[Rfam]
RNA sequence: GCACCUAAUCUUUCCCAUUCCUUGCUGUGCAGUGUGAGCCUGGGGACGCAUGGUGCUGACAGAAAAGCAGAGUAAAUCCAGACAAGUGGUUCUUCAUUGACUAAUUGUCUCUACACCUCUGCAACAGU
Numbered sequence: 001g002c003a004c005c006u007a008a009u010c011u012u013u014c015c016c017a018u019u020c021c022u023u024g025c026u027g028u029g030c031a032g033u034g035u036g037a038g039c040c041u042g043g044g045g046a047c048g049c050a051u052g053g054u055g056c057u058g059a060c061a062g063a064a065a066a067g068c069a070g071a072g073u074a075a076a077u078c079c080a081g082a083c084a085a086g087u088g089g090u091u092c093u094u095c096a097u098u099g100a101c102u103a104a105u106u107g108u109c110u111c112u113a114c115a116c117c118u119c120u121g122c123a124a125c126a127g128u
Stems, first nucleotide, its partner, number of pairs: 001056005012046006020038001067122006080110006087103001
The record is a 128-nucleotide sequence, which matches "Small nucleolar RNA SNORA55" in Rfam. Rfam links the family to the GO terms nucleolus and RNA processing. From the family's description: ACA55 is a member of the H/ACA class of snoRNA that guide the sites of modification of uridines to pseudouridines. The sequence is in the family's curated seed alignment.